[Rfam]
RNA sequence: ACCGGGCUCAGUAACGCGAGCCUGUAACCAAGUGGGGCAUUAAGGUGUUUGGACGUUGGCUGGACCAUCCAAGUUGGGCCUGGUGGGUGCGAUACCGGCCCGCCCAAUCCAAGUAAUGAGUGAUCCACGUGGUCCGGGCGAAGGCCUGGAUCACUUGGAUGCUAAAGUGGAGGGAACCGCGUGAGGCUGGUUUCACAGAGCAGCGACGACCUCCCGCUCUUGUCAGUGGAUGGAUAACGGGUCGGUUCCCAGUUGGCUCGCUCGUACUUGGAUAGUCUCCCUCAAUAGAACAAACACUUUU
Number, nucleotide and partner (000 for none) at each position: 001a000002c037003c036004g023005g022006g021007c020008u019009c018010a000011g000012u000013a000014a000015c000016g000017c000018g009019a008020g007021c006022c005023u004024g000025u000026a000027a000028c035029c034030a000031a000032g000033u000034g029035g028036g003037g002038c000039a000040u000041u000042a300043a299044g298045g297046u296047g295048u294049u293050u292051g291052g000053a000054c288055g000056u285057u284058g283059g281060c000061u000062g278063g277064a276065c000066c000067a273068u272069c271070c270071a269072a268073g267074u266075u000076g259077g258078g257079c256080c255081u000082g253083g000084u000085g250086g249087g248088u000089g247090c000091g000092a000093u000094a000095c245096c244097g243098g242099c241100c240101c239102g238103c000104c233105c232106a000107a231108u230109c229110c228111a227112a000113g224114u000115a000116a221117u000118g219119a218120g217121u216122g000123a160124u159125c158126c157127a156128c000129g154130u153131g152132g151133u150134c149135c148136g147137g146138g145139c144140g000141a000142a000143g000144g139145c138146c137147u136148g135149g134150a133151u132152c131153a130154c129155u000156u127157g126158g125159a124160u123161g000162c167163u000164a000165a000166a000167g162168u000169g214170g213171a212172g211173g210174g000175a000176a000177c000178c000179g000180c205181g204182u203183g000184a000185g000186g000187c198188u197189g196190g000191u000192u000193u000194c000195a000196c189197a188198g187199a000200g000201c000202a000203g182204c181205g180206a000207c000208g000209a000210c173211c172212u171213c170214c169215c000216g121217c120218u119219c118220u000221u116222g000223u000224c113225a000226g000227u111228g110229g109230a108231u107232g105233g104234a000235u000236a000237a000238c102239g101240g100241g099242u098243c097244g096245g095246u000247u089248c087249c086250c085251a000252g000253u082254u000255g080256g079257c078258u077259c076260g000261c000262u000263c000264g000265u000266a074267c073268u072269u071270g070271g069272a068273u067274a000275g000276u064277c063278u062279c000280c000281c059282u000283c058284a057285a056286u000287a000288g054289a000290a000291c051292a050293a049294a048295c047296a046297c045298u044299u043300u042301u000

Shown here is a 301-nucleotide sequence from Citrus x clementina, a member of the family "Plant signal recognition particle RNA". NCBI's taxonomy places the organism under Eukaryota, Pentapetalae, Sapindales, Rutaceae, Citrus. The match comes from Rfam's covariance-model search (224 bits). It is annotated as a non-coding RNA gene.